[Rfam]
RNA sequence: AUGGUUCUGGUUUAAGUCAUGACAAGUUUUUCUUGCAGUAGAGAUAAUCUGGAAAAAAUGGUCAUGACUGAUACCAAGAUCAU
Numbered sequence: 001a002u003g004g005u006u007c008u009g010g011u012u013u014a015a016g017u018c019a020u021g022a023c024a025a026g027u028u029u030u031u032c033u034u035g036c037a038g039u040a041g042a043g044a045u046a047a048u049c050u051g052g053a054a055a056a057a058a059u060g061g062u063c064a065u066g067a068c069u070g071a072u073a074c075c076a077a078g079a080u081c082a083u
Base pairs, nucleotide, nucleotide: 003081004080005079006078008076009075010074011073013071015069016068017067018066019065020064021063022062028056029055030054031053032052033051